Rfam assigns this 67-nucleotide RNA sequence from Pontibacillus yanchengensis to the family "Bacillaceae-1 RNA". Rfam classes the family as a small RNA.
RNA sequence: ACUAAAUGAGGUUCGAUUGAGAUUGCUGCCUUGUGCAGCAACAUCAAACCAACCUACGUCGUGUAGG
Number, nucleotide and partner (000 for none) at each position: 001a000002c000003u000004a000005a000006a000007u000008g000009a000010g000011g049012u048013u047014c000015g045016a044017u043018u000019g000020a000021g000022a000023u000024u000025g039026c038027u037028g036029c035030c000031u000032u000033g000034u000035g029036c028037a027038g026039c025040a000041a000042c000043a017044u016045c015046a000047a013048a012049c011050c000051a000052a000053c067054c066055u065056a064057c063058g000059u000060c000061g000062u000063g057064u056065a055066g054067g053